This 345-nucleotide RNA from Sphingobium sp. YR768 belongs to the Rfam family "Alphaproteobacteria transfer-messenger RNA". Rfam links the family to the GO term RNA catabolic process. Taxonomically the source falls in Sphingobium (Bacteria, Pseudomonadota, Sphingomonadales, Sphingobiaceae).
[Rfam]
RNA sequence: CGACUUGAUAAAUCGCCCGCACCGCUCCAUAUAGGGGCUGCCGGGUUCGCCCGGCUAUGGUGAUAAAUUAUGUCGUGUAAUAGACGCAGCGGACCCGGGGGCAGUACCCGGCGGUUCCACCACAUACCCCGUUCUCAACGGGGUGUCUGACGGGGCCGAACUAGGAUCGACGUGUGUUCAAAGGCGAUGUUUUUACCCGGCCCGUGUAAGCCGUUAAACUGUGCAAAACUCACAAGUGCCAACGAUAACGAAGCACUCGCCAUUGCAGCGUAAUUGAGGGCCUCACGGCCUGACAUUACCCUAAAAUAGCGCGGUUGAACCCACCGGGCAACAGAAGGGAAUUCA
Dot-bracket structure: .......................................(((((......)))))...(((((......(((((((........(((.(((...(((((.......)))))(((((((.................................)))))))............)))))).......)))))))..)))))((((..[[...[))))......]..]].......................................................................................((((.[[[..[))))............]..]]].
Numbered sequence: 001c002g003a004c005u006u007g008a009u010a011a012a013u014c015g016c017c018c019g020c021a022c023c024g025c026u027c028c029a030u031a032u033a034g035g036g037g038c039u040g041c042c043g044g045g046u047u048c049g050c051c052c053g054g055c056u057a058u059g060g061u062g063a064u065a066a067a068u069u070a071u072g073u074c075g076u077g078u079a080a081u082a083g084a085c086g087c088a089g090c091g092g093a094c095c096c097g098g099g100g101g102c103a104g105u106a107c108c109c110g111g112c113g114g115u116u117c118c119a120c121c122a123c124a125u126a127c128c129c130c131g132u133u134c135u136c137a138a139c140g141g142g143g144u145g146u147c148u149g150a151c152g153g154g155g156c157c158g159a160a161c162u163a164g165g166a167u168c169g170a171c172g173u174g175u176g177u178u179c180a181a182a183g184g185c186g187a188u189g190u191u192u193u194u195a196c197c198c199g200g201c202c203c204g205u206g207u208a209a210g211c212c213g214u215u216a217a218a219c220u221g222u223g224c225a226a227a228a229c230u231c232a233c234a235a236g237u238g239c240c241a242a243c244g245a246u247a248a249c250g251a252a253g254c255a256c257u258c259g260c261c262a263u264u265g266c267a268g269c270g271u272a273a274u275u276g277a278g279g280g281c282c283u284c285a286c287g288g289c290c291u292g293a294c295a296u297u298a299c300c301c302u303a304a305a306a307u308a309g310c311g312c313g314g315u316u317g318a319a320c321c322c323a324c325c326g327g328g329c330a331a332c333a334g335a336a337g338g339g340a341a342u343u344c345a
Stems, first nucleotide, its partner, number of pairs: 040055005059197005070190007085176003089173003095111005112158007198213004204224002209220001312326004317344003322339001